[Rfam]
RNA sequence: UGGGGUUGCUGAAUUAGAGAUUGGCGCCCAUCUUAUUUUAAUUAUUCGGAGUAUUAUAAUGUCUCUAAGUGUUGAAGUGAAAGCUAAAAUUAUUGCUGAUUUCGGUCGUAAUGCU
Numbered sequence: 001u002g003g004g005g006u007u008g009c010u011g012a013a014u015u016a017g018a019g020a021u022u023g024g025c026g027c028c029c030a031u032c033u034u035a036u037u038u039u040a041a042u043u044a045u046u047c048g049g050a051g052u053a054u055u056a057u058a059a060u061g062u063c064u065c066u067a068a069g070u071g072u073u074g075a076a077g078u079g080a081a082a083g084c085u086a087a088a089a090u091u092a093u094u095g096c097u098g099a100u101u102u103c104g105g106u107c108g109u110a111a112u113g114c115u
Stems, first nucleotide, its partner, number of pairs: 007026006045069002048066004

Source information:
This 115-nucleotide sequence from Candidatus Regiella insecticola belongs to the Rfam family "Ribosomal S15 leader". The base pairs follow the family's consensus structure, which is taken from published work. Rfam's curators put it in the seed alignment. The organism belongs to Candidatus Regiella, within Bacteria. The E. coli Ribosomal S15 gene 5' UTR can form two alternative structures. One that is a series of three hairpins, The other includes a pseudoknot. This structure causes translational regulation of the S15 protein. The alignment of this family contains only the final two hairpins which are conserved in other species, and also includes the complete region that forms the alternate structures. Its Rfam clan is "Ribosomal Protein S15 Leader clan".